[Rfam]
RNA sequence: UCGACCACGGGUAUUCUUGGGUUGAUAAUACAGAUGUGGAUGUUAUUGCUUGAGAAUACGCGUAGUCGAG
Numbered sequence: 001u002c003g004a005c006c007a008c009g010g011g012u013a014u015u016c017u018u019g020g021g022u023u024g025a026u027a028a029u030a031c032a033g034a035u036g037u038g039g040a041u042g043u044u045a046u047u048g049c050u051u052g053a054g055a056a057u058a059c060g061c062g063u064a065g066u067c068g069a070g
Stems, first nucleotide, its partner, number of pairs: 001069004007063003011059012024047007031039001

The record is a 70-nucleotide RNA from Takifugu rubripes, which matches "mir-137 microRNA precursor family" in Rfam. Gene Ontology terms of the family: RISC complex and miRNA-mediated post-transcriptional gene silencing. Pairs were carried over by alignment from the consensus structure, which was predicted with RNAalifold.